[Rfam]
RNA sequence: UAAUUGUUCAUGAACUCAUAGGGGUUGGCUUCAUCUCCGUGAAAGGGGGUGAUGCCUAUGGUUACAUUUGCAGAGACGUUAACGUUAAUGAUCUCUUUUGGGAUGUUAAUUGUUGCCGUUCUGGCAUUUAACCAUAAAAAAUAAGCCCCUCUGAGUUAACGGCUCAGUAGAUCAAGGGCUUAUUUUAUGGUCACCAUCUACGCCAAUCCCCUUUGAAGGGAACUGAACGAUUACAGACCGUUAGUGUUACAGCACUAGCG
Number, nucleotide and partner (000 for none) at each position: 001u233002a232003a231004u230005u229006g000007u227008u226009c225010a000011u000012g000013a000014a000015c155016u154017c153018a152019u000020a150021g149022g148023g000024g146025u145026u144027g000028g000029c000030u000031u052032c051033a050034u000035c049036u048037c047038c046039g000040u000041g000042a000043a000044a000045g000046g038047g037048g036049g035050u033051g032052a031053u000054g000055c000056c000057u000058a000059u000060g125061g000062u123063u000064a000065c000066a119067u000068u000069u000070g000071c000072a000073g000074a000075g000076a000077c090078g089079u000080u000081a000082a000083c000084g000085u000086u000087a000088a000089u078090g077091a000092u000093c000094u000095c000096u000097u000098u000099u000100g117101g116102g000103a114104u000105g000106u000107u000108a000109a000110u000111u000112g000113u000114u103115g000116c101117c100118g000119u066120u000121c000122u000123g062124g000125c060126a000127u000128u000129u000130a000131a000132c000133c000134a000135u000136a000137a000138a000139a000140a000141a000142u000143a000144a026145g025146c024147c000148c022149c021150u020151c000152u018153g017154a016155g015156u000157u000158a000159a000160c000161g000162g000163c000164u000165c000166a186167g185168u000169a000170g000171a000172u000173c000174a000175a000176g000177g000178g000179c000180u000181u000182a000183u000184u000185u167186u166187a000188u000189g000190g000191u000192c000193a000194c000195c000196a000197u000198c000199u000200a000201c000202g000203c000204c000205a000206a000207u221208c220209c219210c218211c000212u000213u000214u000215g000216a000217a000218g210219g209220g208221a207222a000223c000224u000225g009226a008227a007228c000229g005230a004231u003232u002233a001234c000235a000236g000237a000238c000239c260240g259241u258242u257243a256244g255245u254246g253247u252248u000249a000250c000251a000252g247253c246254a245255c244256u243257a242258g241259c240260g239
BsrG: a 260-nucleotide RNA sequence from Salipaludibacillus keqinensis. It scores 95 bits against the family's covariance model. Rfam links the family to the GO terms autolysis and toxin activity. Rfam's curators write: bsrE, bsrG and bsrH pair through intermolecular interactions with antisense sRNAs. They form type I toxin/antitoxin system that includes an mRNA encoding for a short, toxic peptide (bsrE, bsrG and bsrH) and an antitoxin that is comprised of an antisense RNA. bsrG encodes a 39-amino-acid toxin, and the 180 nucleotide antisense sRNA called SR4 acts as the antitoxin (they overlap by 123 nucleotides). SR4 interaction with the 3'UTR of bsrG RNA promotes bsrG degradation and inhibits its translation. BsrG interferes with cell envelope biosynthesis, causes membrane invaginations and delocalisation of the cell wall synthesis and initiates autolysis. bsrE RNA encodes 30 amino-acid toxin peptide. Lineage of the source: Bacteria > Bacillati > Bacillota > Bacilli > Salipaludibacillus.